[Rfam]
Nucleotides: 114
Base pairs, nucleotide, nucleotide: 002113004111008107009106010105011104013102014101015100018097020095021094037077038076039075040074050062
Number, partner (000 for none) and nucleotide at each position: 001000c002113u003000g004111g005000g006000c007000u008107a009106c010105g011104g012000a013102g014101a015100c016000a017000u018097g019000u020095a021094c022000c023000c024000a025000a026000a027000g028000a029000c030000g031000u032000g033000g034000c035000u036000g037077g038076g039075c040074a041000u042000g043000a044000u045000g046000g047000u048000g049000g050062g051000g052000g053000c054000g055000c056000u057000g058000u059000g060000c061000g062050c063000a064000c065000u066000g067000g068000c069000u070000g071000g072000g073000g074040u075039g076038c077037u078000g079000a080000c081000c082000a083000u084000c085000g086000c087000c088000a089000u090000g091000c092000c093000a094021g095020u096000c097018c098000c099000c100015g101014u102013u103000a104011u105010c106009g107008u108000c109000a110000a111004u112000a113002a114000c